[Rfam]
RNA: Small nucleolar RNA SNORD16
RNA sequence: CGCCGUGAUGUGGUAAUUUGCGUCCGACCCCGCUCCGGGCGACGGUUGCCUGCCGUCAGCGAGCCGGGGCGGGCGGGUGACGACGCUGUCGCUGAGCG
Numbered sequence: 001c002g003c004c005g006u007g008a009u010g011u012g013g014u015a016a017u018u019u020g021c022g023u024c025c026g027a028c029c030c031c032g033c034u035c036c037g038g039g040c041g042a043c044g045g046u047u048g049c050c051u052g053c054c055g056u057c058a059g060c061g062a063g064c065c066g067g068g069g070c071g072g073g074c075g076g077g078u079g080a081c082g083a084c085g086c087u088g089u090c091g092c093u094g095a096g097c098g
Base pairs, nucleotide, nucleotide: 001098002097003096021082022081023080024079030072031071032070033069034068039064040063041057042056043055044054045053